[Rfam]
RNA sequence: GACAAAAACGGAAAUGGUGUCUUCCGAUUUAACCGCCUUAAAAAGCUGAUGGCGCCUACAAAAAA
Numbered sequence: 001g002a003c004a005a006a007a008a009c010g011g012a013a014a015u016g017g018u019g020u021c022u023u024c025c026g027a028u029u030u031a032a033c034c035g036c037c038u039u040a041a042a043a044a045g046c047u048g049a050u051g052g053c054g055c056c057u058a059c060a061a062a063a064a065a
Stems, first nucleotide, its partner, number of pairs: 010025004016056006035046002038043001

Rfam assigns this 65-nucleotide RNA sequence from Mucilaginibacter corticis to the family "Fluoride riboswitch aptamer (crcB RNA motif)".
NCBI's taxonomy places the organism under Bacteria, Bacteroidota, Sphingobacteriia, Sphingobacteriaceae, Mucilaginibacter.